[Rfam]
RNA: Bacterial large signal recognition particle RNA
RNA sequence: UCGUGCUAGACGGAGAGUUAGCGGUGCUUUGUAACCUGCAAUCCGCUGUAGCAGGGUUGAAUUCCCCACCGAGGCUUCAGGUUUUGAGGUCUGCCGGAGGAAAGUGGUGUUGACAGUUGGACCCUUCGCAAUAGAAACUUAUGAACCCCGUCAGGUCAGGAAUGAAGCAGCGGUAAGUAAGAUCUUUUAUGUGCCGGAGGAUACUCUGGCUCGAGCUAACUGCCAAAGUAACGCUUGGAAGCUGUUUGUCGAAGUGGGGUGCACGG
Numbered sequence: 001u002c003g004u005g006c007u008a009g010a011c012g013g014a015g016a017g018u019u020a021g022c023g024g025u026g027c028u029u030u031g032u033a034a035c036c037u038g039c040a041a042u043c044c045g046c047u048g049u050a051g052c053a054g055g056g057u058u059g060a061a062u063u064c065c066c067c068a069c070c071g072a073g074g075c076u077u078c079a080g081g082u083u084u085u086g087a088g089g090u091c092u093g094c095c096g097g098a099g100g101a102a103a104g105u106g107g108u109g110u111u112g113a114c115a116g117u118u119g120g121a122c123c124c125u126u127c128g129c130a131a132u133a134g135a136a137a138c139u140u141a142u143g144a145a146c147c148c149c150g151u152c153a154g155g156u157c158a159g160g161a162a163u164g165a166a167g168c169a170g171c172g173g174u175a176a177g178u179a180a181g182a183u184c185u186u187u188u189a190u191g192u193g194c195c196g197g198a199g200g201a202u203a204c205u206c207u208g209g210c211u212c213g214a215g216c217u218a219a220c221u222g223c224c225a226a227a228g229u230a231a232c233g234c235u236u237g238g239a240a241g242c243u244g245u246u247u248g249u250c251g252a253a254g255u256g257g258g259g260u261g262c263a264c265g266g
Base pairs, nucleotide, nucleotide: 001266002265003264004263005262006261009058010057011056012030013029014028015027017025018024019023035055036054037053038052039051064259065258066257067256068255069254073250074249075248079243080242082240083239084238085237086236087235088234092230093229099224100223104220105219106217107216108215115211116210117209118208119207120206121205123200124199125198126197127196128195129191130190132189133188134187135186136185138181139180140179141178142177148173149172150171151170156165157164158163